[Rfam]
About this RNA: The family of this 87-nucleotide RNA from Digitaria exilis is "Small nucleolar RNA snoR8a". The organism belongs to Digitaria, within Eukaryota. Rfam classes the family as a C/D-box small nucleolar RNA.

RNA sequence: CGGGGUGCGGUGAUUAUAGAAACAUUCCUCGUCCUGAUGGGGGAUCCCCCGUGAUUGACUCUUAUACACCCAUAGAAUCUGAGCACC
Numbered sequence: 001c002g003g004g005g006u007g008c009g010g011u012g013a014u015u016a017u018a019g020a021a022a023c024a025u026u027c028c029u030c031g032u033c034c035u036g037a038u039g040g041g042g043g044a045u046c047c048c049c050c051g052u053g054a055u056u057g058a059c060u061c062u063u064a065u066a067c068a069c070c071c072a073u074a075g076a077a078u079c080u081g082a083g084c085a086c087c
Stems, first nucleotide, its partner, number of pairs: 003087002006085002